[Rfam]
RNA: mir-9014 microRNA precursor family
RNA sequence: AGAACCAUAGGGAGGGAUACCAAUCCAGCCUCAGGAAAAGAAACCUUCCAUAGGAGUCUUGGAGAUUGGUGACCAUCUUAAUGACUUA
Numbered sequence: 001a002g003a004a005c006c007a008u009a010g011g012g013a014g015g016g017a018u019a020c021c022a023a024u025c026c027a028g029c030c031u032c033a034g035g036a037a038a039a040g041a042a043a044c045c046u047u048c049c050a051u052a053g054g055a056g057u058c059u060u061g062g063a064g065a066u067u068g069g070u071g072a073c074c075a076u077c078u079u080a081a082u083g084a085c086u087u088a
Stems, first nucleotide, its partner, number of pairs: 002087002006083003010079004015074002018071008029062002038060004044054003